This 135-nucleotide RNA sequence from Pullulanibacillus pueri belongs to the Rfam family "c-di-AMP riboswitch aptamer (ydaO/yuaA leader)".
[Rfam]
RNA sequence: GAAUAUUUAACGCUUAAUCCUUUUUAUAAGGAGUGGGGGACCCAAUCUUUCUUGGGGUGAAUCCUGUUAUCAGGUAGGGUAACUCCUCUAACCCGAACCCGUCAGCUAACUCCAUCAGCGUUUGAUUGGGGAGGG
Numbered sequence: 001g002a003a004u005a006u007u008u009a010a011c012g013c014u015u016a017a018u019c020c021u022u023u024u025u026a027u028a029a030g031g032a033g034u035g036g037g038g039g040a041c042c043c044a045a046u047c048u049u050u051c052u053u054g055g056g057g058u059g060a061a062u063c064c065u066g067u068u069a070u071c072a073g074g075u076a077g078g079g080u081a082a083c084u085c086c087u088c089u090a091a092c093c094c095g096a097a098c099c100c101g102u103c104a105g106c107u108a109a110c111u112c113c114a115u116c117a118g119c120g121u122u123u124g125a126u127u128g129g130g131g132a133g134g135g
Stems, first nucleotide, its partner, number of pairs: 011120004018032005033115006043054002055100003063074004077094004
The organism belongs to Pullulanibacillus, within Bacteria.
A search with the family's covariance model found it, with a score of 106 bits.